[Rfam]
RNA sequence: AAGUUCGUCGGAAACGAACUUGGAACAAAGGAG
Numbered sequence: 001a002a003g004u005u006c007g008u009c010g011g012a013a014a015c016g017a018a019c020u021u022g023g024a025a026c027a028a029a030g031g032a033g
Stems, first nucleotide, its partner, number of pairs: 001021008

Description:
Shown here is a 33-nucleotide RNA from Lactuca sativa, a member of the family "L31-Coriobacteria ribosomal protein leader". Pairs were carried over by alignment from the consensus structure, which is taken from published work. On this family, see Eckert and Weinberg, BMC Microbiol 2020: "Discovery of 20 novel ribosomal leader candidates in bacteria and archaea".